Notes:
Lysine riboswitch aptamer: a 184-nucleotide sequence from Heliorestis acidaminivorans. Its family is annotated with lysine biosynthetic process in the Gene Ontology. Pairs were carried over by alignment from the consensus structure, which is taken from published work.
RNA sequence: UGGAGAGUUAGAGGUGCGGUAUGUUAUGAGUAACACAGAUGAGUUUUGACGGAAAACUAUGAUUCUGUAGGGAAAGGAACUACCGCCGAAGUCUGAAUAAUGCCGAUCAUUUUCAGGCUGGGGCUGGGCAAAAUAUGCCCAGAACUGCCACCAGUACUUUUUUUGGUGGAGAGCUACUUUUUAC
Numbered sequence: 001u002g003g004a005g006a007g008u009u010a011g012a013g014g015u016g017c018g019g020u021a022u023g024u025u026a027u028g029a030g031u032a033a034c035a036c037a038g039a040u041g042a043g044u045u046u047u048g049a050c051g052g053a054a055a056a057c058u059a060u061g062a063u064u065c066u067g068u069a070g071g072g073a074a075a076g077g078a079a080c081u082a083c084c085g086c087c088g089a090a091g092u093c094u095g096a097a098u099a100a101u102g103c104c105g106a107u108c109a110u111u112u113u114c115a116g117g118c119u120g121g122g123g124c125u126g127g128g129c130a131a132a133a134u135a136u137g138c139c140c141a142g143a144a145c146u147g148c149c150a151c152c153a154g155u156a157c158u159u160u161u162u163u164u165g166g167u168g169g170a171g172a173g174c175u176a177c178u179u180u181u182u183a184c
Base pairs, nucleotide, nucleotide: 006179007178009176010175011174016086017085018084019083020082021081023080024079025078034070035068036067037066038065039064090119091118092117093116094115095114096113097112099110120146121145124142125141126140127139128138129137130136148169149168150167151166152165153164154163